The record is a 145-nucleotide RNA from Paenisporosarcina antarctica, which matches "Ribosomal protein L20 leader" in Rfam. This family is a putative r-protein leader autoregulatory structure found in B. subtilis and other low-GC Gram-positive bacteria. It is located in the 5' untranslated regions of mRNAs encoding initiation factor 3 followed by ribosomal proteins L35 and L20 (infC-rpmI-rplT). A Rho-independent transcription terminator structure that is probably involved in regulation is included at the 3' end. Gene Ontology term of the family: regulation of gene expression. The source organism's lineage runs through Bacteria, Bacillota, Bacilli, Caryophanaceae and Paenisporosarcina. The base pairs follow the family's consensus structure, which was predicted with CMfinder.
RNA sequence: UGGUAUAAGAAGAGGCUGCCCGCUUCUCACCUGAUUGACACUAUUAGUUGUUGACAGGUCGGCACACGAUUAAACGUAACGUACAGUGUUGUACUUGCAUAUAUCGGCGGGCGGACAUCUUACAUGUCCGCCCGUUUUUUUAUUG
Numbered sequence: 001u002g003g004u005a006u007a008a009g010a011a012g013a014g015g016c017u018g019c020c021c022g023c024u025u026c027u028c029a030c031c032u033g034a035u036u037g038a039c040a041c042u043a044u045u046a047g048u049u050g051u052u053g054a055c056a057g058g059u060c061g062g063c064a065c066a067c068g069a070u071u072a073a074a075c076g077u078a079a080c081g082u083a084c085a086g087u088g089u090u091g092u093a094c095u096u097g098c099a100u101a102u103a104u105c106g107g108c109g110g111g112c113g114g115a116c117a118u119c120u121u122a123c124a125u126g127u128c129c130g131c132c133c134g135u136u137u138u139u140u141u142a143u144u145g
Base pairs, nucleotide, nucleotide: 011027012026013025014024015023016022029059030058031057037052038051039050040048041047110132111131112130113129114128115127116126117125118124